[Rfam]
RNA sequence: UUGACUGCCAAUGACGUUAAAAUACUAAAUCCCUGGGGUGUGUUUUAGUUGAUAUUAGUCGC
Numbered sequence: 001u002u003g004a005c006u007g008c009c010a011a012u013g014a015c016g017u018u019a020a021a022a023u024a025c026u027a028a029a030u031c032c033c034u035g036g037g038g039u040g041u042g043u044u045u046u047a048g049u050u051g052a053u054a055u056u057a058g059u060c061g062c
Base pairs, nucleotide, nucleotide: 002061003060004059005058016049017048018047019046020045021044022043023042024041025040031038032037

Rfam assigns this 62-nucleotide RNA sequence from Mytilus coruscus to the family "Selenocysteine insertion sequence 1". Rfam 15.1 lists 3,793 matches to the family in 721 species. The incorporation of selenocysteine into a protein sequence is directed by an in-frame UGA codon (usually a stop codon) within the coding region of the mRNA. Selenoprotein mRNAs contain a conserved secondary structure in the 3' UTR that is required for the distinction of UGA stop from UGA selenocysteine. The selenocysteine insertion sequence (SECIS) is around 60 nt in length and adopts a hairpin structure which is sufficiently well-defined and conserved to act as a computational screen for selenoprotein genes. Pairs were carried over by alignment from the consensus structure, which is taken from published work. The organism belongs to Mytilus, within Eukaryota. Rfam classes the family as a cis-regulatory element. Rfam links the family to the GO term selenocysteine incorporation.